[Rfam]
RNA sequence: CUGCUAUCCGCUAAACGGGAAGCCCGUGUCGCGGAAGGUUUUCCUGCAUCGUAUCGAGUGAAGCACUCGUCAAGGUGAAGCG
Numbered sequence: 001c002u003g004c005u006a007u008c009c010g011c012u013a014a015a016c017g018g019g020a021a022g023c024c025c026g027u028g029u030c031g032c033g034g035a036a037g038g039u040u041u042u043c044c045u046g047c048a049u050c051g052u053a054u055c056g057a058g059u060g061a062a063g064c065a066c067u068c069g070u071c072a073a074g075g076u077g078a079a080g081c082g
Base pairs, nucleotide, nucleotide: 002082003081004080007035008034009033010032011031016026017025018024019023037044038043047077048076049075050074055069056068057067058066059065060064
The record is an 82-nucleotide RNA from Bordetella bronchiseptica, which matches "SucA RNA motif" in Rfam. The sequence is in the family's curated seed alignment. Taxonomically the source falls in Bordetella (Bacteria, Pseudomonadati, Pseudomonadota, Burkholderiales). The family's consensus secondary structure is taken from published work. The literature on the family includes a 2007 paper in Nucleic Acids Res by Weinberg et al., "Identification of 22 candidate structured RNAs in bacteria using the CMfinder comparative genomics pipeline".